The family of this 67-nucleotide sequence from Domibacillus mangrovi is "Bacillaceae-1 RNA".
[Rfam]
RNA sequence: AGGAGCGGAAAGAAGACUAAUAUCGUCAGGUCCUAUGACAACGUCUGCCUGAUUCACAUCCUGUGAA
Numbered sequence: 001a002g003g004a005g006c007g008g009a010a011a012g013a014a015g016a017c018u019a020a021u022a023u024c025g026u027c028a029g030g031u032c033c034u035a036u037g038a039c040a041a042c043g044u045c046u047g048c049c050u051g052a053u054u055c056a057c058a059u060c061c062u063g064u065g066a067a
Base pairs, nucleotide, nucleotide: 012048014046015045016044017043025039026038027037028036053067054066055065056064057063

Source information: It scores 57 bits against the family's covariance model. Rfam 15.1 lists 5,721 matches to the family in 247 species. By type it is a small RNA.